[Rfam]
RNA sequence: GGCCGUUCUCGGGGCGGGGUGAAAUUCCCCACCGGCGGUAAUUGGAGAAAUCCAUCAGCCCGCGAGCGCCUUUUGGCUCCUGCCAGAAGGGUCUAGCAGAUCCGGUGUAAUUCCGGAGCCGACGGUUAAAGUCCGGAUGUGAGAGAACAAAG
Numbered sequence: 001g002g003c004c005g006u007u008c009u010c011g012g013g014g015c016g017g018g019g020u021g022a023a024a025u026u027c028c029c030c031a032c033c034g035g036c037g038g039u040a041a042u043u044g045g046a047g048a049a050a051u052c053c054a055u056c057a058g059c060c061c062g063c064g065a066g067c068g069c070c071u072u073u074u075g076g077c078u079c080c081u082g083c084c085a086g087a088a089g090g091g092u093c094u095a096g097c098a099g100a101u102c103c104g105g106u107g108u109a110a111u112u113c114c115g116g117a118g119c120c121g122a123c124g125g126u127u128a129a130a131g132u133c134c135g136g137a138u139g140u141g142a143g144a145g146a147a148c149a150a151a152g
Stems, first nucleotide, its partner, number of pairs: 005148006017029003031132002033121002035063004058119002066097002101117005123135003
Dot-bracket structure: ....((((((......(((.......))).[[((((((...................[[))))..((............................))...(((((.......)))))]])).(((.....]]))).......))))))....